[Rfam]
Background: This 93-nucleotide RNA from Bagarius yarrelli belongs to the Rfam family "mir-217 microRNA precursor family". Its family is annotated with miRNA-mediated post-transcriptional gene silencing and RISC complex in the Gene Ontology. For this family Rfam cites "Vertebrate microRNA genes" (Lim et al., Science, 2003). Taxonomically the source falls in Bagarius (Eukaryota, Opisthokonta, Actinopteri, Sisoridae). The match comes from Rfam's covariance-model search (97 bits).
Nucleotides: 093
Stems, first nucleotide, its partner, number of pairs: 023073005029067009039058003
Number, partner (000 for none) and nucleotide at each position: 001000a002000g003000c004000u005000u006000u007000c008000a009000g010000a011000c012000g013000c014000u015000g016000a017000u018000g019000a020000u021000a022000c023073u024072g025071c026070a027069u028000c029067a030066g031065g032064a033063a034062c035061u036060g037059a038000u039058u040057g041056g042000a043000u044000a045000u046000u047000a048000c049000a050000a051000a052000g053000a054000g055000a056041c057040c058039a059037u060036c061035a062034g063033u064032u065031c066030c067029u068000g069027a070026u071025g072024c073023a074000u075000u076000g077000c078000c079000u080000u081000c082000a083000g084000c085000a086000u087000c088000g089000a090000a091000a092000g093000a